[Rfam]
Description: This 102-nucleotide RNA sequence from Caloramator fervidus belongs to the Rfam family "Purine riboswitch aptamer". The source organism's lineage runs through Bacteria, Bacillati, Bacillota, Clostridiaceae and Caloramator. The base pairs follow the family's consensus structure, which is taken from published work. Gene Ontology term of the family: purine nucleobase biosynthetic process. The match comes from Rfam's covariance-model search (97 bits). Rfam's curators write: Riboswitches are metabolite binding domains within certain messenger RNAs that serve as precision sensors for their corresponding targets.
RNA sequence: UAAAUAAAAGAUACAAUCAUCCAUAUAAUCCAAGGGAUAUGGCCUUGGAGUCUCUACCGGGCAGCCGUAAACUGCCCGACUAUGGAUGAGUCAGUGGCUUUU
Number, nucleotide and partner (000 for none) at each position: 001u000002a000003a000004a000005u000006a000007a000008a000009a000010g000011a000012u000013a000014c000015a000016a000017u000018c088019a087020u086021c085022c084023a083024u082025a081026u000027a000028a000029u049030c048031c047032a046033a045034g044035g043036g000037a000038u000039a000040u000041g000042g000043c035044c034045u033046u032047g031048g030049a029050g000051u000052c000053u000054c000055u000056a000057c000058c078059g077060g076061g075062c074063a073064g072065c000066c000067g000068u000069a000070a000071a000072c064073u063074g062075c061076c060077c059078g058079a000080c000081u025082a024083u023084g022085g021086a020087u019088g018089a000090g000091u000092c000093a000094g000095u000096g000097g000098c000099u000100u000101u000102u000